[Rfam]
This 76-nucleotide RNA sequence from Methylobacterium haplocladii belongs to the Rfam family "Makes More Granules Regulator RNA (mmgR)". The organism belongs to Methylobacterium, within Bacteria. Rfam 15.1 lists 1,791 matches to the family in 918 species. Clan: suhB sRNA clan.
RNA sequence: UUUCGCAGCCCUUCUUGGGCGUUUCCUCCCUAGACUUCGGGCCGCUCCUUCGGGGCGGCCUUUUUUUUGCUUUUGA
Numbered sequence: 001u002u003u004c005g006c007a008g009c010c011c012u013u014c015u016u017g018g019g020c021g022u023u024u025c026c027u028c029c030c031u032a033g034a035c036u037u038c039g040g041g042c043c044g045c046u047c048c049u050u051c052g053g054g055g056c057g058g059c060c061u062u063u064u065u066u067u068u069g070c071u072u073u074u075g076a
Base pairs, nucleotide, nucleotide: 008020009019010018011017039061040060041059042058043057044056045055046054047053
The pairing is the family consensus, mapped onto this sequence.